UnaL2 LINE 3' element: a 54-nucleotide sequence from Salmo trutta. Pairs were carried over by alignment from the consensus structure, which is taken from published work. From the family's description: The eel long interspersed element (LINE) UnaL2 and its partner short interspersed element (SINE) share a conserved 3' tail containing a stem-loop that is critical for their retrotransposition. Presumably, the first step of retrotransposition is the recognition of their 3' tails by UnaL2-encoded reverse transcriptase. The family's RNA type in Rfam is cis-regulatory element.

[Rfam]
RNA sequence: UCGUGGCAGGUGUGUAAGUCGCUCUGGAUAAGAGCGUCUGCUAAAUGACGUAAA
Numbered sequence: 001u002c003g004u005g006g007c008a009g010g011u012g013u014g015u016a017a018g019u020c021g022c023u024c025u026g027g028a029u030a031a032g033a034g035c036g037u038c039u040g041c042u043a044a045a046u047g048a049c050g051u052a053a054a
Base pairs, nucleotide, nucleotide: 013043014041015040016039020036021035022034023033024032025031
The match comes from Rfam's covariance-model search (68 bits). The family has 30 seed sequences and 493,311 matches in Rfam 15.1.